[Rfam]
RNA: Glycine riboswitch aptamer
Organism: Bacillus sp. V5-8f
RNA sequence: AUGAAGGCAAGGGGAGAGACUACACCUGCGUAGCGCCGAAGGAGCAAGCUUUUUAAGUGAAUCUCUCAGGCAAAAGUACUCUUGCCGGACG
Numbered sequence: 001a002u003g004a005a006g007g008c009a010a011g012g013g014g015a016g017a018g019a020c021u022a023c024a025c026c027u028g029c030g031u032a033g034c035g036c037c038g039a040a041g042g043a044g045c046a047a048g049c050u051u052u053u054u055a056a057g058u059g060a061a062u063c064u065c066u067c068a069g070g071c072a073a074a075a076g077u078a079c080u081c082u083u084g085c086c087g088g089a090c091g
Stems, first nucleotide, its partner, number of pairs: 006086008020033004035071003038067002042065003048058002